Rfam assigns this 133-nucleotide RNA sequence from Klebsiella sp. RIT-PI-d to the family "opuB ncRNA motif". Taxonomically the source falls in Klebsiella (Bacteria, Pseudomonadota, Enterobacterales, Enterobacteriaceae). The family's RNA type in Rfam is cis-regulatory element. The literature on the family includes a 2024 paper in Nucleic Acids Res by Narunsky et al., "The discovery of novel noncoding RNAs in 50 bacterial genomes". From the family's description: opuB ncRNA motif was reported as a strong cis regulatory motif candidate, with potential to be a cis regulatory riboswitch type, it have been identified in mostly from species of Enterobacteriaceae. The motif have been recognised mostly downstream-adjacent gene, opuB, annotated as coding for a proline/glycine ABC-transporter, whereas other related genes are known to be relevant to the transport of compatible solutes such as glycine, betaine, and choline of an uncharacterized ABC transporter with strong homology to amino acid transporters. Rfam's curators put it in the seed alignment.

[Rfam]
RNA sequence: UAAUUUCGCAGCUUUAUGGCGACCCUGCGCCUGCCUUGCUAUAGCUCUAUGACCCUGCCACACAUGGCAUAACAACAUGCAACUUAGGGUUGCCAUAACACAUGCAUACAGGGAGAAGGACGAGAAUGCAUAC
Numbered sequence: 001u002a003a004u005u006u007c008g009c010a011g012c013u014u015u016a017u018g019g020c021g022a023c024c025c026u027g028c029g030c031c032u033g034c035c036u037u038g039c040u041a042u043a044g045c046u047c048u049a050u051g052a053c054c055c056u057g058c059c060a061c062a063c064a065u066g067g068c069a070u071a072a073c074a075a076c077a078u079g080c081a082a083c084u085u086a087g088g089g090u091u092g093c094c095a096u097a098a099c100a101c102a103u104g105c106a107u108a109c110a111g112g113g114a115g116a117a118g119g120a121c122g123a124g125a126a127u128g129c130a131u132a133c
Stems, first nucleotide, its partner, number of pairs: 009113001014112002019028002035104001037102002056069005079093005